[Rfam]
RNA: c-di-AMP riboswitch aptamer (ydaO/yuaA leader)
Organism: Paenibacillus antri
Nucleotides: 132
Base pairs, nucleotide, nucleotide: 011117012116013115014114018030019029020028031112032111033110034109035108036107047098048097049096055076056075057074058073059072060071079092080091
Number, partner (000 for none) and nucleotide at each position: 001000c002000u003000u004000g005000a006000g007000a008000u009000u010000g011117u012116g013115c014114c015000g016000a017000a018030c019029u020028u021000c022000a023000u024000a025000a026000c027000g028020a029019a030018g031112a032111c033110g034109g035108g036107g037000g038000a039000u040000c041000c042000g043000u044000a045000u046000u047098g048097g049096g050000u051000g052000a053000a054000u055076u056075g057074a058073u059072c060071u061000c062000g063000a064000u065000u066000g067000u068000c069000g070000a071060a072059g073058a074057u075056c076055a077000u078000a079092g080091g081000g082000a083000a084000c085000c086000u087000u088000c089000a090000a091080c092079c093000g094000a095000a096049c097048c098047c099000u100000u101000a102000g103000c104000u105000a106000a107036c108035c109034u110033c111032g112031u113000a114014g115013g116012c117011a118000a119000c120000u121000g122000a123000a124000g125000g126000a127000g128000g129000a130000u131000a132000c